[Rfam]
RNA sequence: GGCACCUAAAAGCGUUUUCUUGUAGGUCAACUUAAUGCUCUUGAAAAUCGUAGCUGUGUGCCAGAUUAAAUCUAAGUUGCAAGUGACUUUUUGAGUUUUUAAUAUUGAAAGUCCAUAACGCUGGGAACAGAA
Numbered sequence: 001g002g003c004a005c006c007u008a009a010a011a012g013c014g015u016u017u018u019c020u021u022g023u024a025g026g027u028c029a030a031c032u033u034a035a036u037g038c039u040c041u042u043g044a045a046a047a048u049c050g051u052a053g054c055u056g057u058g059u060g061c062c063a064g065a066u067u068a069a070a071u072c073u074a075a076g077u078u079g080c081a082a083g084u085g086a087c088u089u090u091u092u093g094a095g096u097u098u099u100u101a102a103u104a105u106u107g108a109a110a111g112u113c114c115a116u117a118a119c120g121c122u123g124g125g126a127a128c129a130g131a132a
Base pairs, nucleotide, nucleotide: 001062002061003060004059005058006056012051013050014049015047016046017045018044019043022038023037025036071126072125073124075122076121077120083116084115085114086112087111088110089109094106095105096104
The record is a 132-nucleotide RNA sequence from Drosophila grimshawi, which matches "Small nucleolar RNA psi28S-3316" in Rfam.
The family has 33 seed sequences and 85 matches in Rfam 15.1.
Taxonomically the source falls in Hawaiian Drosophila (Eukaryota, Opisthokonta, Protostomia, Insecta).